[Rfam]
This 80-nucleotide sequence from Mizuhopecten yessoensis belongs to the Rfam family "Small nucleolar RNA SNORD53/SNORD92". It scores 54 bits against the family's covariance model. By type it is a C/D-box small nucleolar RNA. Its Rfam clan is "SNORD52 clan". Gene Ontology terms of the family: RNA processing and nucleolus. A reference for the family is Kiss-Laszlo et al. (1996), "Site-specific ribose methylation of preribosomal RNA: a novel function for small nucleolar RNAs", Cell.
Nucleotides: 080
Base pairs, nucleotide, nucleotide: 001080002079003078004077
Number, partner (000 for none) and nucleotide at each position: 001080a002079a003078g004077c005000g006000a007000u008000g009000a010000u011000g012000a013000c014000u015000g016000a017000a018000g019000g020000a021000c022000a023000u024000g025000g026000g027000u028000u029000c030000a031000u032000u033000u034000u035000c036000u037000u038000u039000u040000c041000u042000g043000a044000a045000a046000a047000u048000u049000a050000a051000u052000g053000a054000u055000g056000a057000c058000a059000c060000u061000u062000u063000c064000c065000u066000u067000g068000g069000c070000u071000g072000u073000c074000u075000g076000a077004g078003c079002u080001u